Background
The family of this 87-nucleotide RNA from Roseospira goensis is "sRNA-Xcc1". Lineage of the source: Bacteria > Pseudomonadati > Alphaproteobacteria > Rhodospirillaceae > Roseospira.
[Rfam]
RNA sequence: GGCGGGGCGCCUGCGGAUACAAGACCCGCAAGGGGAAGAAGCAGGGUCCGUCUCAGGCCGGAUUUCCAACGCUCCCGCCGCCAGGGA
Numbered sequence: 001g002g003c004g005g006g007g008c009g010c011c012u013g014c015g016g017a018u019a020c021a022a023g024a025c026c027c028g029c030a031a032g033g034g035g036a037a038g039a040a041g042c043a044g045g046g047u048c049c050g051u052c053u054c055a056g057g058c059c060g061g062a063u064u065u066c067c068a069a070c071g072c073u074c075c076c077g078c079c080g081c082c083a084g085g086g087a
Stems, first nucleotide, its partner, number of pairs: 001079006007072003011044004025034003046063005

Rfam 15.1 lists 421 matches to the family in 299 species. The base pairs follow the family's consensus structure, which was predicted with RNAalifold. By type it is a small RNA. On this family, see Chen et al., RNA Biol 2011: "sRNA-Xcc1, an integron-encoded transposon- and plasmid-transferred trans-acting sRNA, is under the positive control of the key virulence regulators HrpG and HrpX of Xanthomonas campestris pathovar campestris".